[Rfam]
RNA sequence: ACGAUGUUCCGCUGCAAUAAAAUCAUUGUAAGAGCGUCUG
Numbered sequence: 001a002c003g004a005u006g007u008u009c010c011g012c013u014g015c016a017a018u019a020a021a022a023u024c025a026u027u028g029u030a031a032g033a034g035c036g037u038c039u040g
Stems, first nucleotide, its partner, number of pairs: 003038007013030006

A member of the RNA family "Ribosomal protein L19 leader" from Bacillus sp. 165, 40 nucleotides long. Rfam links the family to the GO term regulation of gene expression. By type it is a cis-regulatory leader. This family is a putative r-protein leader autoregulatory structure found in B. subtilis and other low-GC Gram-positive bacteria. It is located in the 5' untranslated regions of mRNAs encoding ribosomal protein L19 (rplS).